[Rfam]
RNA sequence: UUGUUGGUAUCUCGCAACGAUAUUCGGCUUACUUAGUCAGGUUCGGAAGAAAGCAGCUUGGGUCGAAAUUCUCGUGUGCCGAGAAUAGCUGGCAAUGU
Numbered sequence: 001u002u003g004u005u006g007g008u009a010u011c012u013c014g015c016a017a018c019g020a021u022a023u024u025c026g027g028c029u030u031a032c033u034u035a036g037u038c039a040g041g042u043u044c045g046g047a048a049g050a051a052a053g054c055a056g057c058u059u060g061g062g063u064c065g066a067a068a069u070u071c072u073c074g075u076g077u078g079c080c081g082a083g084a085a086u087a088g089c090u091g092g093c094a095a096u097g098u
Base pairs, nucleotide, nucleotide: 004092005091006090007089008088010084011083012082013081014080015076017075018074019073020072022070023067024066025065026064027063028062029061033060035058036057037056042051043050044049

Rfam assigns this 98-nucleotide RNA sequence from Targowskia paracuniculus to the family "Bacterial small signal recognition particle RNA". The family's RNA type in Rfam is non-coding RNA gene. A search with the family's covariance model found it, with a score of 66 bits. The organism belongs to Targowskia, within Bacteria. The family's consensus secondary structure is taken from published work.